[Rfam]
The record is a 174-nucleotide sequence from Streptomyces sp. Ru87, which matches "c-di-AMP riboswitch aptamer (ydaO/yuaA leader)" in Rfam. Taxonomically the source falls in Streptomyces (Bacteria, Bacillati, Kitasatosporales, Streptomycetaceae).

RNA sequence: GACACGCGGUAGUCGAAUCGGCAGGAGCGGGGAAACCAGGUACGUGCCGUGCCGCGCCUCAGGCGUGCACGGCUUGGGGUGAAGCCGGACUCACGGUGUUCCAAUGCCGCGGGACGGCCGGGCAACUCCAGCCCGAAUCCGACAGCUCACCUCGCAGGCGCUCGGAGAGGAAAC
Numbered sequence: 001g002a003c004a005c006g007c008g009g010u011a012g013u014c015g016a017a018u019c020g021g022c023a024g025g026a027g028c029g030g031g032g033a034a035a036c037c038a039g040g041u042a043c044g045u046g047c048c049g050u051g052c053c054g055c056g057c058c059u060c061a062g063g064c065g066u067g068c069a070c071g072g073c074u075u076g077g078g079g080u081g082a083a084g085c086c087g088g089a090c091u092c093a094c095g096g097u098g099u100u101c102c103a104a105u106g107c108c109g110c111g112g113g114a115c116g117g118c119c120g121g122g123c124a125a126c127u128c129c130a131g132c133c134c135g136a137a138u139c140c141g142a143c144a145g146c147u148c149a150c151c152u153c154g155c156a157g158g159c160g161c162u163c164g165g166a167g168a169g170g171a172a173a174c
Stems, first nucleotide, its partner, number of pairs: 005160003013025002027155006037076005077140003085117003120134004